SAM riboswitch aptamer (S box leader): a 100-nucleotide RNA from Listeria fleischmannii. The SAM riboswitch is found upstream of a number of genes which code for proteins involved in methionine or cysteine biosynthesis in Gram-positive bacteria. It scores 87 bits against the family's covariance model. NCBI's taxonomy places the organism under Bacteria, Bacillati, Listeriaceae, Listeria, Listeria fleischmannii.
RNA sequence: CACUUAUCCAGAGAGAUGGAGGGAUCUGGCCCUUUGAAAUCUCGGCAACAGCCUUUUGGGCGAUGUGCUAAAUCCAGCAGGGAAACCUGAAAGAUAAGAG
Numbered sequence: 001c002a003c004u005u006a007u008c009c010a011g012a013g014a015g016a017u018g019g020a021g022g023g024a025u026c027u028g029g030c031c032c033u034u035u036g037a038a039a040u041c042u043c044g045g046c047a048a049c050a051g052c053c054u055u056u057u058g059g060g061c062g063a064u065g066u067g068c069u070a071a072a073u074c075c076a077g078c079a080g081g082g083a084a085a086c087c088u089g090a091a092a093g094a095u096a097a098g099a100g
Stems, first nucleotide, its partner, number of pairs: 001100001003098006013043005021032003026077004044069004049065002051061004073092001078089004